[Rfam]
RNA sequence: AACUUAUUGAGAGAAGUGGAGGGAUUUGGCUCUGUGAAACUUCAGCAACCGGCUUUAUCAGUACGGUGCUACAACCAACGAUGCAACUCGAGUAAUAAGGU
Numbered sequence: 001a002a003c004u005u006a007u008u009g010a011g012a013g014a015a016g017u018g019g020a021g022g023g024a025u026u027u028g029g030c031u032c033u034g035u036g037a038a039a040c041u042u043c044a045g046c047a048a049c050c051g052g053c054u055u056u057a058u059c060a061g062u063a064c065g066g067u068g069c070u071a072c073a074a075c076c077a078a079c080g081a082u083g084c085a086a087c088u089c090g091a092g093u094a095a096u097a098a099g100g101u
Stems, first nucleotide, its partner, number of pairs: 001101001003099006013043005021032003026078004044070004049066002052062003074093001079090003
A member of the RNA family "SAM riboswitch aptamer (S box leader)" from Staphylococcus sp. HMSC071G07, 101 nucleotides long. Pairs were carried over by alignment from the consensus structure, which is taken from published work. Gene Ontology term of the family: regulation of gene expression. The SAM riboswitch is found upstream of a number of genes which code for proteins involved in methionine or cysteine biosynthesis in Gram-positive bacteria.